[Rfam]
RNA: MIR2619 microRNA precursor family
Organism: Medicago truncatula
RNA sequence: AAACAGCCCCUUAUGUAUUGGAUCUUUGACAGUUUUGGCACCCAAGGCCACUUUUGACUUAGUCUUCACUGACGUGGCACCCACAUCCCUUAACUGAGGUGCCACGUGUCGACCAUUGUGGGUGCCACGUCAGCGAAGUCUAAGUCAAAAGUGGUCUUGGGGGCCAAAACUGCCAAAGAUCCAAUGGGGGCUGUUU
Numbered sequence: 001a002a003a004c005a006g007c008c009c010c011u012u013a014u015g016u017a018u019u020g021g022a023u024c025u026u027u028g029a030c031a032g033u034u035u036u037g038g039c040a041c042c043c044a045a046g047g048c049c050a051c052u053u054u055u056g057a058c059u060u061a062g063u064c065u066u067c068a069c070u071g072a073c074g075u076g077g078c079a080c081c082c083a084c085a086u087c088c089c090u091u092a093a094c095u096g097a098g099g100u101g102c103c104a105c106g107u108g109u110c111g112a113c114c115a116u117u118g119u120g121g122g123u124g125c126c127a128c129g130u131c132a133g134c135g136a137a138g139u140c141u142a143a144g145u146c147a148a149a150a151g152u153g154g155u156c157u158u159g160g161g162g163g164c165c166a167a168a169a170c171u172g173c174c175a176a177a178g179a180u181c182c183a184a185u186g187g188g189g190g191c192u193g194u195u196u
Stems, first nucleotide, its partner, number of pairs: 001196002004193005017185012030172010041161005072130002075127011